[Rfam]
A member of the RNA family "msiK RNA" from Corynebacterium mustelae, 58 nucleotides long.

RNA sequence: UUUCUGUACUUCCCACUACGGAUCGUUCGGCACGUACCUGCCGAUGGAGGAAAAACGA
Numbered sequence: 001u002u003u004c005u006g007u008a009c010u011u012c013c014c015a016c017u018a019c020g021g022a023u024c025g026u027u028c029g030g031c032a033c034g035u036a037c038c039u040g041c042c043g044a045u046g047g048a049g050g051a052a053a054a055a056c057g058a
Base pairs, nucleotide, nucleotide: 009050010049011048012047014046015045027044028043029042030041031040032039
Pairs were carried over by alignment from the consensus structure, which is taken from published work. It scores 59 bits against the family's covariance model.